[Rfam]
Record summary: A member of the RNA family "mir-9193 microRNA precursor family" from Myotis davidii, 73 nucleotides long. Taxonomically the source falls in Myotis (Eukaryota, Opisthokonta, Theria, Laurasiatheria). Gene Ontology terms of the family: miRNA-mediated post-transcriptional gene silencing and RISC complex. The base pairs follow the family's consensus structure, which was predicted with RNAalifold.
RNA sequence: CUCGGGGCUGGGGGGACCUCAGCCCAGAUUGUGAGAGUGCUCAGACCAGGCUGUGGGACCCCACUGGUGCACG
Numbered sequence: 001c002u003c004g005g006g007g008c009u010g011g012g013g014g015g016a017c018c019u020c021a022g023c024c025c026a027g028a029u030u031g032u033g034a035g036a037g038u039g040c041u042c043a044g045a046c047c048a049g050g051c052u053g054u055g056g057g058a059c060c061c062c063a064c065u066g067g068u069g070c071a072c073g
Base pairs, nucleotide, nucleotide: 004070006068008066010064012062013061014060015059017057018056019055020053021052022051023050024049027046029044030043031042033040